[Rfam]
RNA sequence: AAGGUUCCGGUUCACGUCUAGCCGCAGGGGUUAGGCGACCCGGGUCACC
Numbered sequence: 001a002a003g004g005u006u007c008c009g010g011u012u013c014a015c016g017u018c019u020a021g022c023c024g025c026a027g028g029g030g031u032u033a034g035g036c037g038a039c040c041c042g043g044g045u046c047a048c049c
Stems, first nucleotide, its partner, number of pairs: 003049003007043004015037009
L31-Actinobacteria ribosomal protein leader: a 49-nucleotide RNA sequence from Bifidobacterium bohemicum. It scores 39 bits against the family's covariance model. Taxonomically the source falls in Bifidobacterium bohemicum (Bacteria, Actinomycetes, Bifidobacteriales, Bifidobacterium). The literature on the family includes a 2020 paper in BMC Microbiol by Eckert and Weinberg, "Discovery of 20 novel ribosomal leader candidates in bacteria and archaea".